[Rfam]
Nucleotides: 031
Base pairs, nucleotide, nucleotide: 002030003029004028005027007025009024010023011022012021013020014018
Number, partner (000 for none) and nucleotide at each position: 001000a002030g003029g004028u005027u006000a007025u008000c009024a010023g011022a012021u013020g014018c015000a016000g017000u018014g019000a020013c021012a022011u023010c024009u025007a026000c027005a028004g029003c030002c031000a